A member of the RNA family "RAGATH-18 RNA" from Clostridium tetani, 62 nucleotides long.

[Rfam]
RNA sequence: CCUAUGGAGUGUUAUAGCAAACGAAAGUAGCUUAGGCAAAAUCGGAUAUUAUGAAGUAGGAA
Number, nucleotide and partner (000 for none) at each position: 001c060002c059003u058004a057005u056006g000007g000008a000009g049010u048011g047012u046013u045014a000015u000016a000017g000018c000019a000020a000021a000022c044023g043024a042025a000026a000027g000028u000029a000030g037031c036032u000033u000034a000035g000036g031037c030038a000039a000040a000041a000042u024043c023044g022045g013046a012047u011048a010049u009050u000051a000052u000053g000054a000055a000056g005057u004058a003059g002060g001061a000062a000